[Rfam]
RNA sequence: GCUUUUUCCCCCCAGGCCUGUUGGUGUAUACUACAGAGAAGCUUACACGGUCUUGGGGGUGAAAGGU
Numbered sequence: 001g002c003u004u005u006u007u008c009c010c011c012c013c014a015g016g017c018c019u020g021u022u023g024g025u026g027u028a029u030a031c032u033a034c035a036g037a038g039a040a041g042c043u044u045a046c047a048c049g050g051u052c053u054u055g056g057g058g059g060u061g062a063a064a065g066g067u
Stems, first nucleotide, its partner, number of pairs: 001067004008059004014053003019047002023043003026034002
Shown here is a 67-nucleotide RNA from Hucho hucho, a member of the family "MAT2A 3'UTR stem loop A". It is annotated as a cis-regulatory element. The family's consensus secondary structure is taken from published work.